[Rfam]
Shown here is a 68-nucleotide RNA sequence from Ensifer meliloti, a member of the family "S-element". The sequence is in the family's curated seed alignment.
RNA sequence: AGUCAAGAGUCCUUGGCACCGUUUUUGGUGAGCUGCUUUCUUUUGCCUUAUCGAAGGUGAAGGAAAUG
Dot-bracket structure: .........(((((..((((.(((..((.(.((.(.......).)).)).).))))))))))))....
Annotation: Pairs were carried over by alignment from the consensus structure, which is taken from published work. Gene Ontology terms of the family: mRNA transcription and translation regulator activity. About the family: This family represents a group of S-elements from p42d and related plasmids. The S-element has multiple functions and is believed to act as a negative regulator of repC transcription, be required for efficient replication and act as a translational enhancer of repC.